[Rfam]
RNA sequence: UGCGUGCUCCGGGGUCGGUGAAAUUCCGAGCCGGCGGUGACAGUCCGCGACCCUGACGCCUUCGGGCCGACGGUUGACCUGGUGGAACUCCAGGACCGACGGUGAGAGUCCGGAUGGGAGGAACACGCG
Numbered sequence: 001u002g003c004g005u006g007c008u009c010c011g012g013g014g015u016c017g018g019u020g021a022a023a024u025u026c027c028g029a030g031c032c033g034g035c036g037g038u039g040a041c042a043g044u045c046c047g048c049g050a051c052c053c054u055g056a057c058g059c060c061u062u063c064g065g066g067c068c069g070a071c072g073g074u075u076g077a078c079c080u081g082g083u084g085g086a087a088c089u090c091c092a093g094g095a096c097c098g099a100c101g102g103u104g105a106g107a108g109u110c111c112g113g114a115u116g117g118g119a120g121g122a123a124c125a126c127g128c129g
Base pairs, nucleotide, nucleotide: 003127004126005125006124008122009121010120016028017027018026030109031108032098033097034048035047036046037045043096044095052073053072078094079093080092081091082090100112101111102110
RNA: FMN riboswitch aptamer (RFN element)